[Rfam]
RNA: Guanidine-I riboswitch aptamer
RNA sequence: CGAGUUGGUGGCUAGGGUUCCGGCAUCCAGAGGGUGCGCUGGUCCGAGAGCUGCCACUGCUGCGGGAGACAUCCGCAGCGGGUGCACGGCGGGAUAAAAGCCCGGGAGAC
Numbered sequence: 001c002g003a004g005u006u007g008g009u010g011g012c013u014a015g016g017g018u019u020c021c022g023g024c025a026u027c028c029a030g031a032g033g034g035u036g037c038g039c040u041g042g043u044c045c046g047a048g049a050g051c052u053g054c055c056a057c058u059g060c061u062g063c064g065g066g067a068g069a070c071a072u073c074c075g076c077a078g079c080g081g082g083u084g085c086a087c088g089g090c091g092g093g094a095u096a097a098a099a100g101c102c103c104g105g106g107a108g109a110c
Stems, first nucleotide, its partner, number of pairs: 007055006015045002020042002022039001023037006056083001057081009085105001087108001091103003